Shown here is a 37-nucleotide RNA from Nostoc minutum, a member of the family "CRISPR RNA direct repeat element". Gene Ontology term of the family: defense response. The family has 3 seed sequences and 253 matches in Rfam 15.1. It scores 46 bits against the family's covariance model.
RNA sequence: GCUGUCUAAACCUUUGAUGCCGUUAGGCGUUGAGCAC
Numbered sequence: 001g002c003u004g005u006c007u008a009a010a011c012c013u014u015u016g017a018u019g020c021c022g023u024u025a026g027g028c029g030u031u032g033a034g035c036a037c
Stems, first nucleotide, its partner, number of pairs: 016031006